[Rfam]
RNA sequence: AAUAGAAAAAUGACAAAUCAGAUUUUUUUCCUGAUUUUUAGUUUUUUCCUCCUAAAAAAUUCAAAUCCAACUAAAAAUACUAAAAUCAAGAAGAAAAAUCUGAUUUAUCAUUUUUUAUU
Numbered sequence: 001a002a003u004a005g006a007a008a009a010a011u012g013a014c015a016a017a018u019c020a021g022a023u024u025u026u027u028u029u030c031c032u033g034a035u036u037u038u039u040a041g042u043u044u045u046u047u048c049c050u051c052c053u054a055a056a057a058a059a060u061u062c063a064a065a066u067c068c069a070a071c072u073a074a075a076a077a078u079a080c081u082a083a084a085a086u087c088a089a090g091a092a093g094a095a096a097a098a099u100c101u102g103a104u105u106u107a108u109c110a111u112u113u114u115u116u117a118u119u
Stems, first nucleotide, its partner, number of pairs: 001119005007114007015106013028092003032088007040081002044077004

Background:
Shown here is a 119-nucleotide sequence from Gossypium laxum, a member of the family "MIR7504 microRNA precursor family". The base pairs follow the family's consensus structure, which was predicted with RNAalifold. Gene Ontology terms of the family: RISC complex and miRNA-mediated post-transcriptional gene silencing.